[Rfam]
RNA sequence: GAGCGCGGGGAUCGCCCCCGGUCAGCGCGUCGCGCCCGCCGGGGCGCAGGUG
Numbered sequence: 001g002a003g004c005g006c007g008g009g010g011a012u013c014g015c016c017c018c019c020g021g022u023c024a025g026c027g028c029g030u031c032g033c034g035c036c037c038g039c040c041g042g043g044g045c046g047c048a049g050g051u052g
Stems, first nucleotide, its partner, number of pairs: 016044007025035004